Shown here is a 102-nucleotide RNA sequence from Erysipelotrichaceae bacterium 5_2_54FAA, a member of the family "Purine riboswitch aptamer". Rfam links the family to the GO term purine nucleobase biosynthetic process. The base pairs follow the family's consensus structure, which is taken from published work. The match comes from Rfam's covariance-model search (76 bits).
[Rfam]
RNA sequence: AUCAUGUAUUGACAAUAUGCUUGUAUAUACUCCAUGAUAUGGAUGGAGAGUUUCUAGCCGUGAGCCGUAAAUUCACGGGCUACAAGCAAACAAUUACUCUUU
Numbered sequence: 001a002u003c004a005u006g007u008a009u010u011g012a013c014a015a016u017a018u019g020c021u022u023g024u025a026u027a028u029a030c031u032c033c034a035u036g037a038u039a040u041g042g043a044u045g046g047a048g049a050g051u052u053u054c055u056a057g058c059c060g061u062g063a064g065c066c067g068u069a070a071a072u073u074c075a076c077g078g079g080c081u082a083c084a085a086g087c088a089a090a091c092a093a094u095u096a097c098u099c100u101u102u
Base pairs, nucleotide, nucleotide: 018088019087020086021085022084023083024082025081030048031047032046033045034044035043058078059077060076061075062074063073064072